[Rfam]
RNA sequence: CAUAUAGAACAGCCGAAUUUCCAAAAGAAUACGGGGGAACCAUAUAGCUGCCUGGAGCAGCUUGGGGUGAAUUCCGUUCCGGCGCAGGCGGCAGCCUGUCGGGAGCGGAUAGGGCAGCCGUCAUGCCCGAAUCCGACAGCUAACCUCGGAGGCUGCUUGACCGGACUC
Numbered sequence: 001c002a003u004a005u006a007g008a009a010c011a012g013c014c015g016a017a018u019u020u021c022c023a024a025a026a027g028a029a030u031a032c033g034g035g036g037g038a039a040c041c042a043u044a045u046a047g048c049u050g051c052c053u054g055g056a057g058c059a060g061c062u063u064g065g066g067g068u069g070a071a072u073u074c075c076g077u078u079c080c081g082g083c084g085c086a087g088g089c090g091g092c093a094g095c096c097u098g099u100c101g102g103g104a105g106c107g108g109a110u111a112g113g114g115c116a117g118c119c120g121u122c123a124u125g126c127c128c129g130a131a132u133c134c135g136a137c138a139g140c141u142a143a144c145c146u147c148g149g150a151g152g153c154u155g156c157u158u159g160a161c162c163g164g165a166c167u168c
Stems, first nucleotide, its partner, number of pairs: 011154004019029002032148005041064002065134003073109008112128004
The record is a 168-nucleotide RNA from Paenibacillus sp. D9, which matches "c-di-AMP riboswitch aptamer (ydaO/yuaA leader)" in Rfam. The organism belongs to Paenibacillus, within Bacteria. A search with the family's covariance model found it, with a score of 83 bits. Its family is annotated with regulation of gene expression and cyclic-di-AMP binding in the Gene Ontology.